[Rfam]
RNA sequence: CCCACCGCGAGGUGGGAUCCGAAGGAAGCCGGAGGCAAAGCUACGGCCCGAUGAACAAGAACCCCAUACGAGGCUGGAACGUCCGGAUGAGCUGGCGAAACACAGCGAAAUCCCAGGCUGCCAAGGGACUAUAGAGUAUAUUGGGCGGGCGUUCUCUUUACUCUGUGUCCUAC
Numbered sequence: 001c002c003c004a005c006c007g008c009g010a011g012g013u014g015g016g017a018u019c020c021g022a023a024g025g026a027a028g029c030c031g032g033a034g035g036c037a038a039a040g041c042u043a044c045g046g047c048c049c050g051a052u053g054a055a056c057a058a059g060a061a062c063c064c065c066a067u068a069c070g071a072g073g074c075u076g077g078a079a080c081g082u083c084c085g086g087a088u089g090a091g092c093u094g095g096c097g098a099a100a101c102a103c104a105g106c107g108a109a110a111u112c113c114c115a116g117g118c119u120g121c122c123a124a125g126g127g128a129c130u131a132u133a134g135a136g137u138a139u140a141u142u143g144g145g146c147g148g149g150c151g152u153u154c155u156c157u158u159u160a161c162u163c164u165g166u167g168u169c170c171u172a173c
Base pairs, nucleotide, nucleotide: 001016002015003014004013005012006011028173031170032169035166036165040162042160043159045157046150047149048148049147050146062145063144064143066141067140073137074136075135078132081129082128083127085113086112087111088110091106092105093104094103
RNA: Group II catalytic intron D1-D4-3